[Rfam]
RNA sequence: AUACUCUGGUUUCUCUUCAAAUUCGAAUAAAUCUUUCGCCUUUUACUAAAGAUUUCCGUGGAGAGGAACGACCAUGAGUUUCGUUCAAUUUUUUGAAGCCUGGUUCACACCAGGU
Numbered sequence: 001a002u003a004c005u006c007u008g009g010u011u012u013c014u015c016u017u018c019a020a021a022u023u024c025g026a027a028u029a030a031a032u033c034u035u036u037c038g039c040c041u042u043u044u045a046c047u048a049a050a051g052a053u054u055u056c057c058g059u060g061g062a063g064a065g066g067a068a069c070g071a072c073c074a075u076g077a078g079u080u081u082c083g084u085u086c087a088a089u090u091u092u093u094u095g096a097a098g099c100c101u102g103g104u105u106c107a108c109a110c111c112a113g114g115u
Stems, first nucleotide, its partner, number of pairs: 003079004009069011029055008097115001099114006